Description: Plastid-psbA-1 3UTR RNA: a 117-nucleotide RNA from Ceratophyllum demersum. On this family, see Richter et al., Plant Commun 2023: "Retrograde signaling in plants: A critical review focusing on the GUN pathway and beyond". The organism belongs to Ceratophyllum, within Eukaryota. The sequence is in the family's curated seed alignment.
[Rfam]
RNA sequence: UGUCGAAGCUCCAUCUACAAAUGGAUAAUACUUCAGUGUUAGUGUAUACGAGUUGUUGAAGGGGGCAAUACCAAAUUUCUUGUUCUAUCAAGCAAGAAUUUUGGUAUUGCUCUGUUA
Numbered sequence: 001u002g003u004c005g006a007a008g009c010u011c012c013a014u015c016u017a018c019a020a021a022u023g024g025a026u027a028a029u030a031c032u033u034c035a036g037u038g039u040u041a042g043u044g045u046a047u048a049c050g051a052g053u054u055g056u057u058g059a060a061g062g063g064g065g066c067a068a069u070a071c072c073a074a075a076u077u078u079c080u081u082g083u084u085c086u087a088u089c090a091a092g093c094a095a096g097a098a099u100u101u102u103g104g105u106a107u108u109g110c111u112c113u114g115u116u117a
Base pairs, nucleotide, nucleotide: 010025011024012023013022014021062113063112064111065110066109067108068107069106070105071104073102074101075100077098078097079096080095081094082093083092

Rfam's curators write: Plastid psbA-1 is a non-coding RNA (ncRNA) present in plastids.